[Rfam]
RNA sequence: AUCGAUGUUGCGACAGUAAUCUUACUUAGUACGAGAGGAACCGUUAGAUCGGAUAAUUGGUUAAUACGGUUAGUUGAAAAACUAAUGCCGUGAAGCUACCAUCCGCUGGAUUAUGACUGAAAGCCUCUAAGUCAGAAACCAUGCUGGAAAGCAACGUCCAAUAAAUAAUAAAUGAAAAACAAUAAGGGAAACCUUAAGUUCGGUGGGGGGACGGUGAAGCCUGAAAAGGUAUAGCCAAACCUCUAAUCAAUUUCAAUUAUUAUUCAUUCAGAUCUUCUGUAGACGACUUAUUUAGGGAACGGGUAUUGUACGCGCUAGAGUAAUUUACAUUACGAUGUGCUGAGAUUCAUCCUGAACUCUCCCAAGAUCUGU
Numbered sequence: 001a002u003c004g005a006u007g008u009u010g011c012g013a014c015a016g017u018a019a020u021c022u023u024a025c026u027u028a029g030u031a032c033g034a035g036a037g038g039a040a041c042c043g044u045u046a047g048a049u050c051g052g053a054u055a056a057u058u059g060g061u062u063a064a065u066a067c068g069g070u071u072a073g074u075u076g077a078a079a080a081a082c083u084a085a086u087g088c089c090g091u092g093a094a095g096c097u098a099c100c101a102u103c104c105g106c107u108g109g110a111u112u113a114u115g116a117c118u119g120a121a122a123g124c125c126u127c128u129a130a131g132u133c134a135g136a137a138a139c140c141a142u143g144c145u146g147g148a149a150a151g152c153a154a155c156g157u158c159c160a161a162u163a164a165a166u167a168a169u170a171a172a173u174g175a176a177a178a179a180c181a182a183u184a185a186g187g188g189a190a191a192c193c194u195u196a197a198g199u200u201c202g203g204u205g206g207g208g209g210g211a212c213g214g215u216g217a218a219g220c221c222u223g224a225a226a227a228g229g230u231a232u233a234g235c236c237a238a239a240c241c242u243c244u245a246a247u248c249a250a251u252u253u254c255a256a257u258u259a260u261u262a263u264u265c266a267u268u269c270a271g272a273u274c275u276u277c278u279g280u281a282g283a284c285g286a287c288u289u290a291u292u293u294a295g296g297g298a299a300c301g302g303g304u305a306u307u308g309u310a311c312g313c314g315c316u317a318g319a320g321u322a323a324u325u326u327a328c329a330u331u332a333c334g335a336u337g338u339g340c341u342g343a344g345a346u347u348c349a350u351c352c353u354g355a356a357c358u359c360u361c362c363c364a365a366g367a368u369c370u371g372u
Stems, first nucleotide, its partner, number of pairs: 004158008014146004019049004024044002050105005058098003065092005070085006107141003114134005270370005276290001279287001295362003299358001301353003305346002312340004317336001320333005